[Rfam]
RNA sequence: ACACGUUCUCGGGGCGGGGUGCAAUUCCCCACCGGCGGUAAUCGGCGUUAAACACGACGUAGCCCGCGAGCGCUCUGCGAUUGCAGAGGUCAGCAGACCCGGUUGGAUUCCGGGGCCGACGGUCAUAGUCCGGAUGAAAGAGAACAGAA
Numbered sequence: 001a002c003a004c005g006u007u008c009u010c011g012g013g014g015c016g017g018g019g020u021g022c023a024a025u026u027c028c029c030c031a032c033c034g035g036c037g038g039u040a041a042u043c044g045g046c047g048u049u050a051a052a053c054a055c056g057a058c059g060u061a062g063c064c065c066g067c068g069a070g071c072g073c074u075c076u077g078c079g080a081u082u083g084c085a086g087a088g089g090u091c092a093g094c095a096g097a098c099c100c101g102g103u104u105g106g107a108u109u110c111c112g113g114g115g116c117c118g119a120c121g122g123u124c125a126u127a128g129u130c131c132g133g134a135u136g137a138a139a140g141a142g143a144a145c146a147g148a149a
Stems, first nucleotide, its partner, number of pairs: 005145006017029003031129002033118002035067004062116002070094002098114005120132003
Rfam assigns this 149-nucleotide RNA sequence from Paraburkholderia tropica to the family "FMN riboswitch aptamer (RFN element)". Taxonomically the source falls in Paraburkholderia (Bacteria, Pseudomonadota, Betaproteobacteria, Burkholderiaceae). The base pairs follow the family's consensus structure, which is taken from published work.